[Rfam]
A member of the RNA family "Brucella sRNA CI27" from Rhodobium orientis, 170 nucleotides long.

RNA sequence: GAAUGAGCCAAAGCGCUUUCCCAAAAAGUUGACAGACUUUUUGGAUAAGAAAUCGCGUCAAAACAAGGACCUAAAGUACGUUGCGUGUUUCAGGAAAAACGCAACGUGCUUUAGGUCGGCAUCACGCCUCCGUCCGUUCGCCCUCAGUCGGAUCGAGGGUCUUUUGCAGG
Numbered sequence: 001g002a003a004u005g006a007g008c009c010a011a012a013g014c015g016c017u018u019u020c021c022c023a024a025a026a027a028g029u030u031g032a033c034a035g036a037c038u039u040u041u042u043g044g045a046u047a048a049g050a051a052a053u054c055g056c057g058u059c060a061a062a063a064c065a066a067g068g069a070c071c072u073a074a075a076g077u078a079c080g081u082u083g084c085g086u087g088u089u090u091c092a093g094g095a096a097a098a099a100c101g102c103a104a105c106g107u108g109c110u111u112u113a114g115g116u117c118g119g120c121a122u123c124a125c126g127c128c129u130c131c132g133u134c135c136g137u138u139c140g141c142c143c144u145c146a147g148u149c150g151g152a153u154c155g156a157g158g159g160u161c162u163u164u165u166g167c168a169g170g
Base pairs, nucleotide, nucleotide: 013056014055015054017052018051019050020049021044022043023042024041025040026039027038028037030035059166060165061164062163063162065160068117069116070115071114072113073112074111075110076109077108078107079106080105081104082103083102084101086099088097123157125155126154129152130151131150132149134147136145
The match comes from Rfam's covariance-model search (62 bits).